[Rfam]
RNA sequence: ACGAGUUCAGCUCAACCCCCCGGAGCUGAACUCACGGCGACCCCCGUCCUCCCCCCGGCGGGGGUCGCCCUGU
Numbered sequence: 001a002c003g004a005g006u007u008c009a010g011c012u013c014a015a016c017c018c019c020c021c022g023g024a025g026c027u028g029a030a031c032u033c034a035c036g037g038c039g040a041c042c043c044c045c046g047u048c049c050u051c052c053c054c055c056c057g058g059c060g061g062g063g064g065u066c067g068c069c070c071u072g073u
Stems, first nucleotide, its partner, number of pairs: 004032010036069013